A member of the RNA family "SAM (S-adenosyl methionine) riboswitch aptamer" from Streptomyces paludis, 122 nucleotides long.
[Rfam]
RNA sequence: CGUCACGAGUCUCAGCGACAAGCCCCGGCUUGCUGAGCGGCAACCCUCCUUCUGCGGUGGGGUGCCCCGGGUGAUGACACGGCUCCACGCGCACACCGAUGUGCCGGGAGCAAGCGCGGACC
Number, nucleotide and partner (000 for none) at each position: 001c000002g078003u077004c076005a000006c000007g000008a000009g038010u000011c037012u036013c035014a034015g033016c032017g000018a000019c000020a000021a030022g029023c000024c000025c000026c000027g000028g000029c022030u021031u000032g016033c015034u014035g013036a012037g011038c009039g066040g065041c064042a000043a000044c062045c061046c060047u000048c057049c056050u000051u000052c000053u000054g000055c000056g049057g048058u000059g000060g046061g045062g044063u000064g041065c040066c039067c000068c000069g000070g000071g000072u000073g000074a000075u000076g004077a003078c002079a000080c000081g000082g111083c110084u109085c108086c107087a000088c000089g104090c103091g102092c101093a100094c000095a000096c000097c000098g000099a000100u093101g092102u091103g090104c089105c000106g000107g086108g085109a084110g083111c082112a000113a000114g000115c000116g000117c000118g000119g000120a000121c000122c000